Background
This 512-nucleotide RNA sequence from Saccharothrix sp. ST-888 belongs to the Rfam family "Saccharopolyspora sRNA 350". Rfam links the family to the GO term regulation of secondary metabolite biosynthetic process. Rfam 15.1 lists 1,170 matches to the family in 705 species. The family's RNA type in Rfam is antisense RNA. For this family Rfam cites "Prediction and characterization of small non-coding RNAs related to secondary metabolites in Saccharopolyspora erythraea" (Liu et al., PLoS One, 2013).

RNA sequence: GUGACCGCGCGGACCUGGUACGGCAUCGCCUCGCCGCGCACCCAGGCGGCGGUGUCGAAGAAGUCGCCGUCGCCGAGGACGGCGAGCAGGGCGUCCUCGCCGUACUGGCCGGUGGCGCGCUUCUCGGCGCGGCCGAACGCGAUGAUGUGCAGCUGCUCGACGGGACCGUCGGUACCGGCGAUGAGCUCGCCCGGCUCGACCUCGCGCUGCACGAAGCCUCCUGCCAGGGCGCUCAGCAGCGGACUCUCCAGCGGGCGGAGGAAGGCGAUCUCGCGCAGGUCCUCGGCAAUCACCCGGGAGGCGCCGCCGCCGUCGGUGUAGGUGCUGAUCAGACCGUCCCCGAGGAUGAAGCCCCGGCGGCGGUUGACCCGGUAGACACCUGCCUCCAGGUCCACCCAGGGCAGGGCGCGCAGCAGGUAGCGGGGGGUGAUCCCGAGCAUCUGCGGCGCGGUCUUGGUGGUGGUGGCCAGGUUCCUCGCGGCGGAGGUACUGAGGCUCUGCUGGUUCUGCUG
Numbered sequence: 001g002u003g004a005c006c007g008c009g010c011g012g013a014c015c016u017g018g019u020a021c022g023g024c025a026u027c028g029c030c031u032c033g034c035c036g037c038g039c040a041c042c043c044a045g046g047c048g049g050c051g052g053u054g055u056c057g058a059a060g061a062a063g064u065c066g067c068c069g070u071c072g073c074c075g076a077g078g079a080c081g082g083c084g085a086g087c088a089g090g091g092c093g094u095c096c097u098c099g100c101c102g103u104a105c106u107g108g109c110c111g112g113u114g115g116c117g118c119g120c121u122u123c124u125c126g127g128c129g130c131g132g133c134c135g136a137a138c139g140c141g142a143u144g145a146u147g148u149g150c151a152g153c154u155g156c157u158c159g160a161c162g163g164g165a166c167c168g169u170c171g172g173u174a175c176c177g178g179c180g181a182u183g184a185g186c187u188c189g190c191c192c193g194g195c196u197c198g199a200c201c202u203c204g205c206g207c208u209g210c211a212c213g214a215a216g217c218c219u220c221c222u223g224c225c226a227g228g229g230c231g232c233u234c235a236g237c238a239g240c241g242g243a244c245u246c247u248c249c250a251g252c253g254g255g256c257g258g259a260g261g262a263a264g265g266c267g268a269u270c271u272c273g274c275g276c277a278g279g280u281c282c283u284c285g286g287c288a289a290u291c292a293c294c295c296g297g298g299a300g301g302c303g304c305c306g307c308c309g310c311c312g313u314c315g316g317u318g319u320a321g322g323u324g325c326u327g328a329u330c331a332g333a334c335c336g337u338c339c340c341c342g343a344g345g346a347u348g349a350a351g352c353c354c355c356g357g358c359g360g361c362g363g364u365u366g367a368c369c370c371g372g373u374a375g376a377c378a379c380c381u382g383c384c385u386c387c388a389g390g391u392c393c394a395c396c397c398a399g400g401g402c403a404g405g406g407c408g409c410g411c412a413g414c415a416g417g418u419a420g421c422g423g424g425g426g427g428u429g430a431u432c433c434c435g436a437g438c439a440u441c442u443g444c445g446g447c448g449c450g451g452u453c454u455u456g457g458u459g460g461u462g463g464u465g466g467c468c469a470g471g472u473u474c475c476u477c478g479c480g481g482c483g484g485a486g487g488u489a490c491u492g493a494g495g496c497u498c499u500g501c502u503g504g505u506u507c508u509g510c511u512g
Stems, first nucleotide, its partner, number of pairs: 009395001011393002014390003018334002022330001025329003028325002035322001038319005045314008054240002064235001066233001068231003071117004081109001083108001085106002088103001090101003123228002126225001128223002131219002134216001139210003144205001149201001154198002159195001161193004167183001172179002241305002245301004252296004257291001335348004357387001359384005366379001369375001397437001400434002403431001406428002409424001411422001413421001443482002446479001448477001450475002453471006483511002486506003490503001493502002